[Rfam]
RNA sequence: AGAGGGAAUGUCCGCAUGGACUCUGCCUGAUAGCCCCUGGUGUACUUCCCCGAUACCAGGUUCUGUCAGGCGGGGCCCUGUGAACAUCCCCGCUUUUU
Numbered sequence: 001a002g003a004g005g006g007a008a009u010g011u012c013c014g015c016a017u018g019g020a021c022u023c024u025g026c027c028u029g030a031u032a033g034c035c036c037c038u039g040g041u042g043u044a045c046u047u048c049c050c051c052g053a054u055a056c057c058a059g060g061u062u063c064u065g066u067c068a069g070g071c072g073g074g075g076c077c078c079u080g081u082g083a084a085c086a087u088c089c090c091c092g093c094u095u096u097u098u
Base pairs, nucleotide, nucleotide: 010085011084013082014081015080016079018078019077021075022074023073024072025071026070027069028068029067030066031065032064033063036060037059038058039057040056041055042054043053
Source information
Shown here is a 98-nucleotide RNA from Corynebacterium sp. ATCC 6931, a member of the family "mraW RNA". The family's RNA type in Rfam is cis-regulatory element. It scores 63 bits against the family's covariance model.